[Rfam]
RNA sequence: CUUACAGAGUUCUUUGGCAUUCUGUCCACCUCCUCUUUCUUCGAUCUCUUUCUCCCUCUCUUGCUGUGUAUGUAUGUGGUUUAAUGGAUGGAGGUGGGCAUACUGCCAACAGAGUUGUGUUGG
Numbered sequence: 001c002u003u004a005c006a007g008a009g010u011u012c013u014u015u016g017g018c019a020u021u022c023u024g025u026c027c028a029c030c031u032c033c034u035c036u037u038u039c040u041u042c043g044a045u046c047u048c049u050u051u052c053u054c055c056c057u058c059u060c061u062u063g064c065u066g067u068g069u070a071u072g073u074a075u076g077u078g079g080u081u082u083a084a085u086g087g088a089u090g091g092a093g094g095u096g097g098g099c100a101u102a103c104u105g106c107c108a109a110c111a112g113a114g115u116u117g118u119g120u121u122g123g
Base pairs, nucleotide, nucleotide: 011113014109015108016107017106018105019104023100024099025098026097027096028095029094030093031092032091033090
A member of the RNA family "MIR394 microRNA precursor family" from Malus domestica, 123 nucleotides long. The family has 19 seed sequences and 724 matches in Rfam 15.1. The organism belongs to Malus, within Eukaryota. Gene Ontology terms of the family: RISC complex and miRNA-mediated post-transcriptional gene silencing. A search with the family's covariance model found it, with a score of 88 bits.